[Rfam]
RNA sequence: UCAUGAACUAUGUACCGCGCACAUCACUUAAAUGGGUUCUAUAAAGUCACAUAGGAG
Numbered sequence: 001u002c003a004u005g006a007a008c009u010a011u012g013u014a015c016c017g018c019g020c021a022c023a024u025c026a027c028u029u030a031a032a033u034g035g036g037u038u039c040u041a042u043a044a045a046g047u048c049a050c051a052u053a054g055g056a057g
Base pairs, nucleotide, nucleotide: 019037020036022034023033024032
Dot-bracket structure: ..................((.(((.......))).))....................
Description: Rfam assigns this 57-nucleotide RNA sequence from Juglans regia to the family "Plastid-ndhJ 3UTR RNA". The literature on the family includes a 2023 paper in Plant Commun by Richter et al., "Retrograde signaling in plants: A critical review focusing on the GUN pathway and beyond". About the family: Plastid ndhJ is a non-coding RNA (ncRNA) present in plastids. The family's consensus secondary structure was predicted with LocARNA. The family's RNA type in Rfam is cis-regulatory element. NCBI's taxonomy places the organism under Eukaryota, Streptophytina, Mesangiospermae, rosids, Juglans.